[Rfam]
RNA sequence: GCUACUUGAUCGGGAGAGAGCAGUUUGAAUUUAGUCGGUUUUUGUUGAAAAACCACUUAAAAGUAAAACUGCCGCCGAAGGGGCUAAUACCCAAAAACUCUCAGGCAAAAGGACCGAUCAACGGGG
Numbered sequence: 001g002c003u004a005c006u007u008g009a010u011c012g013g014g015a016g017a018g019a020g021c022a023g024u025u026u027g028a029a030u031u032u033a034g035u036c037g038g039u040u041u042u043u044g045u046u047g048a049a050a051a052a053c054c055a056c057u058u059a060a061a062a063g064u065a066a067a068a069c070u071g072c073c074g075c076c077g078a079a080g081g082g083g084c085u086a087a088u089a090c091c092c093a094a095a096a097a098c099u100c101u102c103a104g105g106c107a108a109a110a111g112g113a114c115c116g117a118u119c120a121a122c123g124g125g126g
Stems, first nucleotide, its partner, number of pairs: 006121008020072007074106003077102002081100003088093001

Shown here is a 126-nucleotide RNA from Cognatundibacterium jejuense, a member of the family "Glycine riboswitch aptamer". Rfam links the family to the GO term glycine biosynthetic process. This family represents the bacterial glycine riboswitch. A search with the family's covariance model found it, with a score of 61 bits.